This 78-nucleotide RNA from Pigmentiphaga litoralis belongs to the Rfam family "Xanthine riboswitch aptamer (NMT1 RNA)". Its family is annotated with purine nucleobase binding in the Gene Ontology.
RNA sequence: CAUCAGAGUAGAAGCAGUUAGCACGAGCCACCGCGGGCAUCGCCCCGCACCCGGCUUGUACGGGACAUUGCUCUCACG
Numbered sequence: 001c002a003u004c005a006g007a008g009u010a011g012a013a014g015c016a017g018u019u020a021g022c023a024c025g026a027g028c029c030a031c032c033g034c035g036g037g038c039a040u041c042g043c044c045c046c047g048c049a050c051c052c053g054g055c056u057u058g059u060a061c062g063g064g065a066c067a068u069u070g071c072u073c074u075c076a077c078g
Stems, first nucleotide, its partner, number of pairs: 005074006015063001018065002021061001023059007

Record summary
The literature on the family includes a 2020 paper in RNA by Yu and Breaker, "A bacterial riboswitch class senses xanthine and uric acid to regulate genes associated with purine oxidation".